Rfam assigns this 74-nucleotide RNA from Ornithorhynchus anatinus to the family "mir-1421 microRNA precursor family". The family has 53 seed sequences and 110 matches in Rfam 15.1.
RNA sequence: CGGUGUGAGCAGGCUGUACAUCAUGCAGAGCAAUGGCGGAAUAUGCUGCAUAGCGUGUGACCUCCCUACACGGC
Numbered sequence: 001c002g003g004u005g006u007g008a009g010c011a012g013g014c015u016g017u018a019c020a021u022c023a024u025g026c027a028g029a030g031c032a033a034u035g036g037c038g039g040a041a042u043a044u045g046c047u048g049c050a051u052a053g054c055g056u057g058u059g060a061c062c063u064c065c066c067u068a069c070a071c072g073g074c
Stems, first nucleotide, its partner, number of pairs: 003071005009065001011063003015059005021053001023051005

The organism belongs to Ornithorhynchus, within Eukaryota.